[Rfam]
RNA: BsrG
RNA sequence: UGUACAAUAAGGCUUUCAUGGGUGGCGGUUUCACUCCCUGACUGAUGAACAGGAGAGGGGGGUGAUGCCUAUGACAGUGUUCGAAGCACUUGUGCUAAUGAUCUCGUUUGGUUCAUUGGUUGUUGCUUUACUGUCACAAAAAAAAUAACCACCCAUAAGCCUGGCAAGCAUAGUGGGUAGUUAUUUUCUAUAAACUGUGUGAGCCGCCCCCUUGAAGGGCUAUUGUACAUGGCCGUUGGUGUACCAGCACCAGCG
Numbered sequence: 001u002g003u004a005c006a007a008u009a010a011g012g013c014u015u016u017c018a019u020g021g022g023u024g025g026c027g028g029u030u031u032c033a034c035u036c037c038c039u040g041a042c043u044g045a046u047g048a049a050c051a052g053g054a055g056a057g058g059g060g061g062g063u064g065a066u067g068c069c070u071a072u073g074a075c076a077g078u079g080u081u082c083g084a085a086g087c088a089c090u091u092g093u094g095c096u097a098a099u100g101a102u103c104u105c106g107u108u109u110g111g112u113u114c115a116u117u118g119g120u121u122g123u124u125g126c127u128u129u130a131c132u133g134u135c136a137c138a139a140a141a142a143a144a145a146u147a148a149c150c151a152c153c154c155a156u157a158a159g160c161c162u163g164g165c166a167a168g169c170a171u172a173g174u175g176g177g178u179a180g181u182u183a184u185u186u187u188c189u190a191u192a193a194a195c196u197g198u199g200u201g202a203g204c205c206g207c208c209c210c211c212u213u214g215a216a217g218g219g220c221u222a223u224u225g226u227a228c229a230u231g232g233c234c235g236u237u238g239g240u241g242u243a244c245c246a247g248c249a250c251c252a253g254c255g
Base pairs, nucleotide, nucleotide: 001229002228003227004226005225007223009221011205012204013203014202015201017159018156019155020154021153022152024149031065032064033063035062036061037060038059039058073135074134075133076132077131078130079129087100088099110127111126112125170189208219209218210217234255235254236253237252238251239250240249241248242247
Dot-bracket structure: (((((.(.(.(((((.((((((.(......(((.(((((..................)))))))).......(((((((.......((..........)).........(((............))).))))))).............)..)))))..)..........(..................)...........)))))..(((......))).).).)))))....(((((((((....)))))))))